[Rfam]
Rfam assigns this 140-nucleotide sequence from Tepidibacillus fermentans to the family "c-di-AMP riboswitch aptamer (ydaO/yuaA leader)". Rfam 15.1 lists 7,607 matches to the family in 2,262 species. Pairs were carried over by alignment from the consensus structure. It scores 104 bits against the family's covariance model.
RNA sequence: UGUUAUUAACUGCUUAAUCCUUUAUGGAGCGGGGGAACCAUCGUAUCUGGGGUGAAUCCUAUGAAUGAUUCAUAGGUAGGGCGUUCCUUCUCUACGUCCGAAUCCGUCAGCUAACCUCGUAAGCGAUAUAGAGAGGUGUU
Numbered sequence: 001u002g003u004u005a006u007u008a009a010c011u012g013c014u015u016a017a018u019c020c021u022u023u024a025u026g027g028a029g030c031g032g033g034g035g036a037a038c039c040a041u042c043g044u045a046u047c048u049g050g051g052g053u054g055a056a057u058c059c060u061a062u063g064a065a066u067g068a069u070u071c072a073u074a075g076g077u078a079g080g081g082c083g084u085u086c087c088u089u090c091u092c093u094a095c096g097u098c099c100g101a102a103u104c105c106g107u108c109a110g111c112u113a114a115c116c117u118c119g120u121a122a123g124c125g126a127u128a129u130a131g132a133g134a135g136g137u138g139u140u
Stems, first nucleotide, its partner, number of pairs: 011125004018028003029120006039049002050105003058076004079099004